Rfam assigns this 67-nucleotide RNA sequence from Thalassobius vesicularis to the family "L2-Alphaproteobacteria ribosomal protein leader". Pairs were carried over by alignment from the consensus structure, which is taken from published work. The literature on the family includes a 2020 paper in BMC Microbiol by Eckert and Weinberg, "Discovery of 20 novel ribosomal leader candidates in bacteria and archaea". The match comes from Rfam's covariance-model search (65 bits).
[Rfam]
RNA sequence: GGCCACCUUCGGGGGGCUAUAACCUAAGGGUGGGCGCAAGCCUGCCUCACAAAACGGAAGACAGAAA
Numbered sequence: 001g002g003c004c005a006c007c008u009u010c011g012g013g014g015g016g017c018u019a020u021a022a023c024c025u026a027a028g029g030g031u032g033g034g035c036g037c038a039a040g041c042c043u044g045c046c047u048c049a050c051a052a053a054a055c056g057g058a059a060g061a062c063a064g065a066a067a
Base pairs, nucleotide, nucleotide: 001018002017003016004015006014007013008012029046030045031044032043033042034041035040